[Rfam]
RNA sequence: AAAUGUUUCAACUCUGCUAGAAUUUGUCUAGCAGGUUUUCUGGUCUUUGUGGAAAAACCCCC
Numbered sequence: 001a002a003a004u005g006u007u008u009c010a011a012c013u014c015u016g017c018u019a020g021a022a023u024u025u026g027u028c029u030a031g032c033a034g035g036u037u038u039u040c041u042g043g044u045c046u047u048u049g050u051g052g053a054a055a056a057a058c059c060c061c062c
Stems, first nucleotide, its partner, number of pairs: 034059003037055006044049001
This 62-nucleotide sequence from Homo sapiens belongs to the Rfam family "U7 small nuclear RNA". Animal histone pre-mRNAs are spliced by a different mechanism than nuclear pre-mRNAs and self-splicing introns. This processing involves the U7 snRNP, which contains only one RNA species: U7. The 5' end of U7 RNA is thought to base-pair to a conserved spacer element downstream of the cleavage site in histone pre-mRNA. This family contains a number of annotated U7 pseudogenes. It scores 52 bits against the family's covariance model. The source organism's lineage runs through Eukaryota, Sarcopterygii, Eutheria, Homininae and Homo.